Source information: This 109-nucleotide RNA from Olea europaea belongs to the Rfam family "mir-399 microRNA precursor family". Lineage of the source: Eukaryota > Tracheophyta > eudicotyledons > asterids > Olea europaea. A search with the family's covariance model found it, with a score of 84 bits. On this family, see Jones-Rhoades and Bartel, Mol Cell 2004: "Computational Identification of Plant MicroRNAs and Their Targets, Including a Stress-Induced miRNA". Rfam 15.1 lists 2,396 matches to the family in 221 species. Pairs were carried over by alignment from the consensus structure, which was predicted with PFOLD.
RNA sequence: GGAUGCAUUACAGGGCGAUUACUCCAUUGGCAGUAGGCUACUUGACUCUACUAUAUAUGGCUGUAUUAUUUAGCUUACUGCCAAAGGAGAUUUGCCCGGCAAUUCACCC
Numbered sequence: 001g002g003a004u005g006c007a008u009u010a011c012a013g014g015g016c017g018a019u020u021a022c023u024c025c026a027u028u029g030g031c032a033g034u035a036g037g038c039u040a041c042u043u044g045a046c047u048c049u050a051c052u053a054u055a056u057a058u059g060g061c062u063g064u065a066u067u068a069u070u071u072a073g074c075u076u077a078c079u080g081c082c083a084a085a086g087g088a089g090a091u092u093u094g095c096c097c098g099g100c101a102a103u104u105c106a107c108c109c
Base pairs, nucleotide, nucleotide: 005105007103008102009101011099013097014096015095016094017093018092022089023088024087025086028083029082030081031080032079033078034077035076036075